[Rfam]
RNA: Small Cajal body specific RNA 23
RNA sequence: GUGCUCACAAGGACAUUCAUCCUGCCACGUGGCUGAGAUGGUCCUGGGAAAACGUGAGCGAGAUGAGAAGUAUUGACUUGGGAGUGUCCCCCUGGAGCCCCGCGGGACGCUACGGUUUUCAAUACAACA
Numbered sequence: 001g002u003g004c005u006c007a008c009a010a011g012g013a014c015a016u017u018c019a020u021c022c023u024g025c026c027a028c029g030u031g032g033c034u035g036a037g038a039u040g041g042u043c044c045u046g047g048g049a050a051a052a053c054g055u056g057a058g059c060g061a062g063a064u065g066a067g068a069a070g071u072a073u074u075g076a077c078u079u080g081g082g083a084g085u086g087u088c089c090c091c092c093u094g095g096a097g098c099c100c101c102g103c104g105g106g107a108c109g110c111u112a113c114g115g116u117u118u119u120c121a122a123u124a125c126a127a128c129a
Stems, first nucleotide, its partner, number of pairs: 003059006012043003018040004025032002070125001072123005078115003083111008091102001094099001